[Rfam]
RNA sequence: UAGGGAACCACACGGCCGUAGAUCCGACAGCGCCGCGCUGGCUCGGGCGCAAAUUGCGUCCGCUGGCGUGGCUUGGGACUGCGGUAGUGU
Number, nucleotide and partner (000 for none) at each position: 001u000002a000003g000004g000005g000006a000007a000008c000009c000010a090011c089012a088013c087014g000015g085016c084017c083018g082019u081020a080021g079022a000023u000024c077025c076026g000027a000028c000029a000030g000031c000032g072033c071034c070035g069036c068037g067038c066039u065040g064041g063042c062043u000044c000045g000046g000047g000048c000049g000050c000051a000052a000053a000054u000055u000056g000057c000058g000059u000060c000061c000062g042063c041064u040065g039066g038067c037068g036069u035070g034071g033072c032073u000074u000075g000076g025077g024078a000079c021080u020081g019082c018083g017084g016085u015086a000087g013088u012089g011090u010
The record is a 90-nucleotide RNA sequence from Halobacterium hubeiense, which matches "S15-Halobacteria ribosomal protein leader" in Rfam. The source organism's lineage runs through Archaea, Methanobacteriati, Methanobacteriota, Halobacteria and Halobacterium. The match comes from Rfam's covariance-model search (62 bits). Its Rfam clan is "Ribosomal Protein S15 Leader clan". A reference for the family is Eckert and Weinberg (2020), "Discovery of 20 novel ribosomal leader candidates in bacteria and archaea", BMC Microbiol. Rfam classes the family as a cis-regulatory leader.